[Rfam]
RNA sequence: UUGUUAGCUGACGUGGUAUCAUCAAGAUUCACAUCGAUUGGAUGGCAAAACAAAAAUUCAUGAGCUGGAUGAGAAUCUUGAUGAUGCUGCAUCGGCAAACAA
Dot-bracket structure: .........((.((((((((((((((((((.((((................................)))).)))))))))))))))))).)).........
Source information
Shown here is a 102-nucleotide RNA from Carex littledalei, a member of the family "mir-172 microRNA precursor family". mir-172 has been experimentally verified in Arabidopsis thaliana. This family is thought to target mRNAs coding for APETALA2-like transcription factors. The mature sequence is excised from the 3' arm of the hairpin.